[Rfam]
RNA sequence: CGGUGCAGCGGCGGCCCUGUAAAGGACUGAGGAGAAAGAACCUUCCCACCCACCCACCAGCGAAGCCCUCACCCGAUAGGGGGACUUCGCUGUGAUCGCCGGUGCACCGGGGGUUAUCGUCGCCGCAGACAACCGCAGAAAGACUUCGGCCCCCGCGCGGGACUGGCAUCCCGCCGGGGGCCUGACCGAUGUAGGAAGACGAGACCUUCCCC
Numbered sequence: 001c002g003g004u005g006c007a008g009c010g011g012c013g014g015c016c017c018u019g020u021a022a023a024g025g026a027c028u029g030a031g032g033a034g035a036a037a038g039a040a041c042c043u044u045c046c047c048a049c050c051c052a053c054c055c056a057c058c059a060g061c062g063a064a065g066c067c068c069u070c071a072c073c074c075g076a077u078a079g080g081g082g083g084a085c086u087u088c089g090c091u092g093u094g095a096u097c098g099c100c101g102g103u104g105c106a107c108c109g110g111g112g113g114u115u116a117u118c119g120u121c122g123c124c125g126c127a128g129a130c131a132a133c134c135g136c137a138g139a140a141a142g143a144c145u146u147c148g149g150c151c152c153c154c155g156c157g158c159g160g161g162a163c164u165g166g167c168a169u170c171c172c173g174c175c176g177g178g179g180g181c182c183u184g185a186c187c188g189a190u191g192u193a194g195g196a197a198g199a200c201g202a203g204a205c206c207u208u209c210c211c212c
Base pairs, nucleotide, nucleotide: 003190004189005187010058011057013055069083070082072081073080074079098124100122101121102120103119104118148182149181150180151179152178154176155175159172160171161170162169194210195209196208197207198206
The family of this 212-nucleotide RNA from Streptomyces aidingensis is "Streptomyces sRNA 4677". Located in the intergenic region between anti-sigma factor SCO4677 gene and a putative regulatory protein gene SCO4676. scr4677 expression requires the SCO4677 activity and scr4677 sRNA itself seem to affect the levels of the SCO4676-associated transcripts. A reference for the family is Hindra et al. (2014), "Complex intra-operonic dynamics mediated by a small RNA in Streptomyces coelicolor", PLoS One. NCBI's taxonomy places the organism under Bacteria, Actinomycetota, Kitasatosporales, Streptomycetaceae, Streptomyces.